[Rfam]
The record is a 133-nucleotide RNA sequence from Sciurus carolinensis, which matches "Small nucleolar RNA SNORA64/SNORA10 family" in Rfam. The organism belongs to Sciurus, within Eukaryota. It scores 66 bits against the family's covariance model. The family's RNA type in Rfam is H/ACA-box small nucleolar RNA. Rfam's curators write: This family belongs to the H/ACA class of small nucleolar RNAs (snoRNAs) which act as guides in the the modification of uridines to pseudouridines. This family includes the human snoRNAs U64 and ACA10 and mouse MBI-29.
RNA sequence: ACUUUCUCAGCUCCACUGAAUAACACAGGCCCUCUGUGUACAUGGUUUAUUUUAAGAAAGAGAGAGGAAGGCCCUCCUAUGUAUGGAAAACCUGCUCCAAAGUGGUCUCUUGAUUCCUAGGAGUGCAACAGCU
Numbered sequence: 001a002c003u004u005u006c007u008c009a010g011c012u013c014c015a016c017u018g019a020a021u022a023a024c025a026c027a028g029g030c031c032c033u034c035u036g037u038g039u040a041c042a043u044g045g046u047u048u049a050u051u052u053u054a055a056g057a058a059a060g061a062g063a064g065a066g067g068a069a070g071g072c073c074c075u076c077c078u079a080u081g082u083a084u085g086g087a088a089a090a091c092c093u094g095c096u097c098c099a100a101a102g103u104g105g106u107c108u109c110u111u112g113a114u115u116c117c118u119a120g121g122a123g124u125g126c127a128a129c130a131g132c133u
Stems, first nucleotide, its partner, number of pairs: 002066007012057002019043001023039004074123006081116001089111002094106003